Purine riboswitch aptamer: a 102-nucleotide sequence from Paenibacillus macerans. Gene Ontology term of the family: purine nucleobase biosynthetic process. Lineage of the source: Bacteria > Bacillati > Caryophanales > Paenibacillaceae > Paenibacillus.

[Rfam]
RNA sequence: GUGAGGGUUACCUCUUAAACUCGUAUAAUACCGGGGAUAGGGCCCGGAAGUUUCUACCCGAGAACCGUAAAUUUUCGGACUACGAGCGAAUACGUGAUGAAG
Numbered sequence: 001g002u003g004a005g006g007g008u009u010a011c012c013u014c015u016u017a018a019a020c021u022c023g024u025a026u027a028a029u030a031c032c033g034g035g036g037a038u039a040g041g042g043c044c045c046g047g048a049a050g051u052u053u054c055u056a057c058c059c060g061a062g063a064a065c066c067g068u069a070a071a072u073u074u075u076c077g078g079a080c081u082a083c084g085a086g087c088g089a090a091u092a093c094g095u096g097a098u099g100a101a102g
Stems, first nucleotide, its partner, number of pairs: 020086006029049001031047005058078007